A member of the RNA family "Clostridiales-1 RNA" from Eubacterium ventriosum, 167 nucleotides long. A search with the family's covariance model found it, with a score of 115 bits. The family has 194 seed sequences and 1,172 matches in Rfam 15.1. Rfam classes the family as a small RNA.
RNA sequence: UGAUUACAAUGGACGAAGGUCUGCUUCCACCUGUGCUUGCACAAAGGUGGAAGCAUGAACUUAGAACAUACCCGGAUAAUGAGCAUAAAAGCAAAGCGAAGCUUUGCGAUAUGCGAAUUAUGCGGUAGGAUUGCGAGAGUGCGAAGCACGUAGCAAUCCGGUAAUCA
Numbered sequence: 001u002g003a004u005u006a007c008a009a010u011g012g013a014c015g016a017a018g019g020u021c022u023g024c025u026u027c028c029a030c031c032u033g034u035g036c037u038u039g040c041a042c043a044a045a046g047g048u049g050g051a052a053g054c055a056u057g058a059a060c061u062u063a064g065a066a067c068a069u070a071c072c073c074g075g076a077u078a079a080u081g082a083g084c085a086u087a088a089a090a091g092c093a094a095a096g097c098g099a100a101g102c103u104u105u106g107c108g109a110u111a112u113g114c115g116a117a118u119u120a121u122g123c124g125g126u127a128g129g130a131u132u133g134c135g136a137g138a139g140u141g142c143g144a145a146g147c148a149c150g151u152a153g154c155a156a157u158c159c160g161g162u163a164a165u166c167a
Stems, first nucleotide, its partner, number of pairs: 001167007011067001014064001017061002020058002022055010032043004072125003076121005083114004091107007128159007139149004
NCBI's taxonomy places the organism under Bacteria, Bacillota, Eubacteriales, Eubacteriaceae, Eubacterium.
Pairs were carried over by alignment from the consensus structure, which is taken from published work.